[Rfam]
RNA sequence: CCCACGCUGUGACCCUCUAGAGGAAGCACUUUCUGUUUGUUGUCUGAGAAAAAACAAAGUGCUUCCCUUUAGAGUGUUACCUUUUGGGA
Numbered sequence: 001c002c003c004a005c006g007c008u009g010u011g012a013c014c015c016u017c018u019a020g021a022g023g024a025a026g027c028a029c030u031u032u033c034u035g036u037u038u039g040u041u042g043u044c045u046g047a048g049a050a051a052a053a054a055c056a057a058a059g060u061g062c063u064u065c066c067c068u069u070u071a072g073a074g075u076g077u078u079a080c081c082u083u084u085u086g087g088g089a
Stems, first nucleotide, its partner, number of pairs: 001088004006083001009080005015074003019070005024064009036054002